The record is a 64-nucleotide sequence from Caenorhabditis briggsae, which matches "mir-239 microRNA precursor family" in Rfam. The base pairs follow the family's consensus structure, which was predicted with RNAalifold. The family has 12 seed sequences and 54 matches in Rfam 15.1. The literature on the family includes a 2006 paper in Cell by Ruby et al., "Large-scale sequencing reveals 21U-RNAs and additional microRNAs and endogenous siRNAs in C. elegans". It is one of the family's seed sequences.

[Rfam]
RNA sequence: CAAUUUUUGUACUGCACAAAAGUACUGACUAUUUCUCAGCGCUUUUGUCCAGUGCAAGAAUGGC
Numbered sequence: 001c002a003a004u005u006u007u008u009g010u011a012c013u014g015c016a017c018a019a020a021a022g023u024a025c026u027g028a029c030u031a032u033u034u035c036u037c038a039g040c041g042c043u044u045u046u047g048u049c050c051a052g053u054g055c056a057a058g059a060a061u062g063g064c
Stems, first nucleotide, its partner, number of pairs: 003061010016048008025039003